[Rfam]
This 66-nucleotide sequence belongs to the Rfam family "D12-methyl RNA".
Rfam classes the family as a small RNA.
Pairs were carried over by alignment from the consensus structure, which is taken from published work.
RNA sequence: CGUUGCAAAGCCUGCUACUUUGCAACGGGUGAGACCGGCACAGCAGAAACCGGUAGGGCGGGAACG
Numbered sequence: 001c002g003u004u005g006c007a008a009a010g011c012c013u014g015c016u017a018c019u020u021u022g023c024a025a026c027g028g029g030u031g032a033g034a035c036c037g038g039c040a041c042a043g044c045a046g047a048a049a050c051c052g053g054u055a056g057g058g059c060g061g062g063a064a065c066g
Base pairs, nucleotide, nucleotide: 001027002026003025004024005023006022007021008020034054035053036052037051038050